[Rfam]
Nucleotides: 265
Stems, first nucleotide, its partner, number of pairs: 001265006009057003012030004017025001019023001034054005063258002066255003072249005079243010092230002096227005104220002106217003115211008123200006129191002132189005138181005148173004156165003
Number, partner (000 for none) and nucleotide at each position: 001265c002264c003263g004262u005261g006260c007000u008000a009057g010056g011055u012030g013029g014028g015027g016000a017025g018000g019023u020000a021000g022000c023019g024000g025017u026000g027015c028014c029013c030012u031000g032000a033000a034054c035053c036052u037051g038050c039000a040000a041000u042000c043000c044000g045000c046000u047000c048000u049000a050038g051037c052036a053035g054034g055011a056010c057009u058000g059000a060000a061000c062000u063258c064257c065000u066255a067254c068253c069000c070000g071000a072249g073248g074247c075246u076245g077000u078000c079243u080242a081241a082240c083239u084238g085237u086236a087235g088234g089000g090000c091000c092230u093229g094000u095000c096227u097226u098225a099224c100223a101000c102000a103000a104220g105219u106217g107216g108215u109000g110000u111000u112000g113000a114000c115211g116210u117209u118208u119207g120206g121205g122204u123200c124199c125198u126197g127196c128195g129191c130190a131000a132189u133188g134187g135186g136185a137000a138181u139180c140179c141178a142177u143000g144000a145000a146000c147000c148173a149172u150171g151170u152000c153000a154000g155000g156165u157164c158163c159000g160000g161000a162000a163158g164157g165156a166000a167000g168000c169000a170151g171150c172149a173148u174000u175000a176000a177142g178141u179140g180139g181138a182000a183000u184000c185136u186135c187134u188133c189132a190130u191129g192000u193000g194000c195128c196127g197126c198125a199124g200123g201000g202000g203000u204122g205121c206120c207119u208118g209117a210116g211115c212000u213000g214000a215108g216107c217106u218000a219105a220104c221000u222000a223100u224099g225098u226097a227096a228000g229093c230092a231000a232000c233000g234088c235087c236086u237085a238084u239083g240082g241081u242080u243079a244000g245076c246075a247074g248073u249072c250000g251000a252000a253068g254067g255066u256000u257064g258063g259000u260006g261005c262004a263003c264002g265001g
Notes
A member of the RNA family "Bacterial large signal recognition particle RNA" from Caldibacillus thermoamylovorans, 265 nucleotides long. From the family's description: The signal recognition particle (SRP) is a universally conserved ribonucleoprotein involved in the co-translational targeting of proteins to membranes. The family's RNA type in Rfam is non-coding RNA gene. It scores 241 bits against the family's covariance model. On this family, see Rosenblad et al., Nucleic Acids Res 2003: "SRPDB: Signal Recognition Particle Database". Clan: SRP clan. Pairs were carried over by alignment from the consensus structure, which is taken from published work. Its family is annotated with signal recognition particle, plasma membrane targeting and SRP-dependent cotranslational protein targeting to membrane, signal sequence recognition in the Gene Ontology.